[Rfam]
RNA sequence: GGUUGCAAGUUUGAGGCCAUAGCAGAAGCACUCAUGGUGUGACCUGUCGGAUUCCAAUGCAUCUGUUAAUUCUACU
Dot-bracket structure: ..............[[.[..((.(((((((.......)))].]]...(((((.(....).)))))....)))).))
Shown here is a 76-nucleotide RNA sequence from Alligator sinensis, a member of the family "Mammalian CPEB3 ribozyme". Pairs were carried over by alignment from the consensus structure, which is taken from published work.